RNA sequence: GUCAGGGUGAGUCGGGCUGGUGCUCUAGACUUCAACUCUCAGGGCAUGGGGACAUGCAGGAGUUCGAUUCUCCCUCCUUGAC
Numbered sequence: 001g002u003c004a005g006g007g008u009g010a011g012u013c014g015g016g017c018u019g020g021u022g023c024u025c026u027a028g029a030c031u032u033c034a035a036c037u038c039u040c041a042g043g044g045c046a047u048g049g050g051g052a053c054a055u056g057c058a059g060g061a062g063u064u065c066g067a068u069u070c071u072c073c074c075u076c077c078u079u080g081a082c
Base pairs, nucleotide, nucleotide: 001082002081003080004079005078006077007076009074012027014025015024016023017022028038029037044057045056046055047054048053059073060072061071062070
The family of this 82-nucleotide sequence from Polarella glacialis is "Selenocysteine transfer RNA".